[Rfam]
RNA sequence: UAAUCUGCGUGUGACUGGCGGAGCAUGGGUAACCAUGGUGGAGCACGCGGGUAACGGCCGUACGCCUGGGCAGAGGUA
Number, nucleotide and partner (000 for none) at each position: 001u000002a000003a052004u051005c050006u049007g048008c047009g046010u045011g044012u043013g000014a000015c040016u000017g066018g065019c064020g063021g000022a000023g000024c000025a036026u035027g034028g033029g000030u000031a000032a000033c028034c027035a026036u025037g000038g000039u000040g015041g000042a000043g012044c011045a010046c009047g008048c007049g006050g005051g004052u003053a000054a000055c073056g000057g071058c070059c069060g000061u000062a000063c020064g019065c018066c017067u000068g000069g059070g058071c057072a000073g055074a000075g000076g000077u000078a000
A member of the RNA family "ZMP/ZTP riboswitch aptamer (pfl RNA motif)" from Cohnella terricola, 78 nucleotides long. The base pairs follow the family's consensus structure, which is taken from published work. A search with the family's covariance model found it, with a score of 59 bits. Taxonomically the source falls in Cohnella (Bacteria, Bacillati, Bacilli, Caryophanales).